[Rfam]
RNA sequence: AGAGUAUCCGAGCCAGCCGCCGGCGCAUGGCGCGGGAGGAAAGUCCGGGCUCCGCAGGGCGUGAUGCAGGAGAAAUUCCUGCGGGUGCGAACCCAGGGAAAGUGCCGCAGAAAAGCAGACCGCCGCGAAAGCGGUAAGGGUGAAAAGGCGGGGUAAGAGCCCACCGGCCGCGAGGGGAACCCGCGGGCCUGGCAAACCCCAUCAGGAGCAAGGUCGAAUAGGGGAGGAUGAGGCGGCCCGCCGACUCCCGGGUACGACCGCUUAAGUCCGCGUGCAAGCGCGGGAUUAGAUAAAUGGCUGGCGGGGGCGCACGCCCCUUACAAAACCCGGCUUAUUGGGUGCUCUGCGC
Numbered sequence: 001a002g003a004g005u006a007u008c009c010g011a012g013c014c015a016g017c018c019g020c021c022g023g024c025g026c027a028u029g030g031c032g033c034g035g036g037a038g039g040a041a042a043g044u045c046c047g048g049g050c051u052c053c054g055c056a057g058g059g060c061g062u063g064a065u066g067c068a069g070g071a072g073a074a075a076u077u078c079c080u081g082c083g084g085g086u087g088c089g090a091a092c093c094c095a096g097g098g099a100a101a102g103u104g105c106c107g108c109a110g111a112a113a114a115g116c117a118g119a120c121c122g123c124c125g126c127g128a129a130a131g132c133g134g135u136a137a138g139g140g141u142g143a144a145a146a147g148g149c150g151g152g153g154u155a156a157g158a159g160c161c162c163a164c165c166g167g168c169c170g171c172g173a174g175g176g177g178a179a180c181c182c183g184c185g186g187g188c189c190u191g192g193c194a195a196a197c198c199c200c201a202u203c204a205g206g207a208g209c210a211a212g213g214u215c216g217a218a219u220a221g222g223g224g225a226g227g228a229u230g231a232g233g234c235g236g237c238c239c240g241c242c243g244a245c246u247c248c249c250g251g252g253u254a255c256g257a258c259c260g261c262u263u264a265a266g267u268c269c270g271c272g273u274g275c276a277a278g279c280g281c282g283g284g285a286u287u288a289g290a291u292a293a294a295u296g297g298c299u300g301g302c303g304g305g306g307g308c309g310c311a312c313g314c315c316c317c318u319u320a321c322a323a324a325a326c327c328c329g330g331c332u333u334a335u336u337g338g339g340u341g342c343u344c345u346g347c348g349c
Stems, first nucleotide, its partner, number of pairs: 001345011012302007020036002023033004041333003045330005050208004057239004062204005067081005082096001083094004097199002102197002104193003120139002122135005147165002150162003167188001168186005174181002212259004222249005232242003267284007

This 349-nucleotide sequence from Cloacibacillus sp. An23 belongs to the Rfam family "Bacterial RNase P class A". It is annotated as a ribozyme.